[Rfam]
RNA sequence: ACAGUAUCGAGCCCUUGUCAUUCUUCUUGCCCGGUGUAUUACGCUACUGGACGGAGAACUGAUAAGGGCUUGACCUGUG
Dot-bracket structure: ...........(((((((((((((((...((.................))..)))))).)))))))))...........

Shown here is a 79-nucleotide sequence from Bicyclus anynana, a member of the family "mir-184 microRNA precursor family". The source organism's lineage runs through Eukaryota, Aparaglossata, Ditrysia, Satyrinae and Bicyclus. The family has 66 seed sequences and 948 matches in Rfam 15.1. The literature on the family includes a 2005 paper in Genes Dev by Chen et al., "The developmental miRNA profiles of zebrafish as determined by small RNA cloning". Gene Ontology terms of the family: gene silencing by miRNA and RISC complex. The family's consensus secondary structure was predicted with PFOLD.